[Rfam]
Nucleotides: 072
Stems, first nucleotide, its partner, number of pairs: 004069004010063004015058005022051003026047002029044002
Number, partner (000 for none) and nucleotide at each position: 001000g002000c003000c004069g005068a006067g007066g008000a009000c010063u011062g012061g013060g014000a015058c016057u017056u018055u019054g020000u021000a022051g023050g024049c025000c026047a027046g028000u029044u030043g031000a032000a033000c034000u035000g036000a037000c038000a039000c040000c041000c042000u043030c044029a045000u046027c047026u048000u049024g050023c051022c052000c053000g054019c055018a056017a057016a058015g059000a060013c061012c062011c063010a064000g065000c066007u067006c068005u069004c070000a071000g072000c
The record is a 72-nucleotide RNA sequence from Rattus norvegicus, which matches "mir-193 microRNA precursor family" in Rfam.
On this family, see Linsen et al., BMC Genomics 2010: "Small RNA expression and strain specificity in the rat".
The base pairs follow the family's consensus structure, which was predicted with RNAalifold.